The record is a 74-nucleotide sequence from Izhakiella capsodis, which matches "Hfq-regulated sRNA 1" in Rfam. It scores 71 bits against the family's covariance model. By type it is a small RNA.
Nucleotides: 074
Stems, first nucleotide, its partner, number of pairs: 009027007030073004035068001038066002041064001043062002047058001
Number, partner (000 for none) and nucleotide at each position: 001000a002000a003000a004000a005000a006000a007000g008000a009027c010026c011025c012024c013023g014022c015021c016000a017000u018000u019000a020000u021015g022014g023013c024012g025011g026010g027009g028000a029000a030073g031072a032071c033070a034000g035068g036000g037000a038066u039065g040000g041064u042000g043062u044061c045000u046000a047058u048000g049000g050000c051000a052000a053000g054000g055000a056000a057000a058047a059000c060000a061044g062043g063000g064041a065039u066038a067000u068035u069000c070033u071032g072031u073030u074000a